[Rfam]
RNA sequence: GAUGGUUACGAUGAUGAUUCUUAGCUCCCUCUUCUGAUGUGAAAGUCUGAAGAAAGCUAGCUGGCAGAAUCGAACCUAUGACUUUAAAGCCAACACUGAGUAA
Numbered sequence: 001g002a003u004g005g006u007u008a009c010g011a012u013g014a015u016g017a018u019u020c021u022u023a024g025c026u027c028c029c030u031c032u033u034c035u036g037a038u039g040u041g042a043a044a045g046u047c048u049g050a051a052g053a054a055a056g057c058u059a060g061c062u063g064g065c066a067g068a069a070u071c072g073a074a075c076c077u078a079u080g081a082c083u084u085u086a087a088a089g090c091c092a093a094c095a096c097u098g099a100g101u102a103a
Stems, first nucleotide, its partner, number of pairs: 006103004